[Rfam]
RNA sequence: AAACUGAAAAGCCACAGCCGUCGUGAGGCGGUGUCGGAAAGCCACGGAUCUCGAAGAAGACCGCCGGGUUGCCUGC
Numbered sequence: 001a002a003a004c005u006g007a008a009a010a011g012c013c014a015c016a017g018c019c020g021u022c023g024u025g026a027g028g029c030g031g032u033g034u035c036g037g038a039a040a041g042c043c044a045c046g047g048a049u050c051u052c053g054a055a056g057a058a059g060a061c062c063g064c065c066g067g068g069u070u071g072c073c074u075g076c
Stems, first nucleotide, its partner, number of pairs: 012037002017032006040070004045066003049060002
RNA: c-di-GMP-I riboswitch aptamer